[Rfam]
RNA: tRNA
Organism: Exophiala dermatitidis
RNA sequence: GGCGGCGUGGCCCAAUGGCAAGGCGCUUGACUACGAAUCAAGAGAUUGCAGGUUCGACCCCUGCCGUCGUCA
Numbered sequence: 001g002g003c004g005g006c007g008u009g010g011c012c013c014a015a016u017g018g019c020a021a022g023g024c025g026c027u028u029g030a031c032u033a034c035g036a037a038u039c040a041a042g043a044g045a046u047u048g049c050a051g052g053u054u055c056g057a058c059c060c061c062u063g064c065c066g067u068c069g070u071c072a
Stems, first nucleotide, its partner, number of pairs: 001071007010024003026042005048064005